[Rfam]
RNA: GA-cis RNA
RNA sequence: GGGAGGAGGCGUCUAUGCAUCGAAGAUGCAUAUUGGAAUGACGCCGACGAAAUGUCGCCGAGAGGAGGUGUCUAUGCAUCGA
Numbered sequence: 001g002g003g004a005g006g007a008g009g010c011g012u013c014u015a016u017g018c019a020u021c022g023a024a025g026a027u028g029c030a031u032a033u034u035g036g037a038a039u040g041a042c043g044c045c046g047a048c049g050a051a052a053u054g055u056c057g058c059c060g061a062g063a064g065g066a067g068g069u070g071u072c073u074a075u076g077c078a079u080c081g082a
Stems, first nucleotide, its partner, number of pairs: 008045006015031006054072001056070001058068002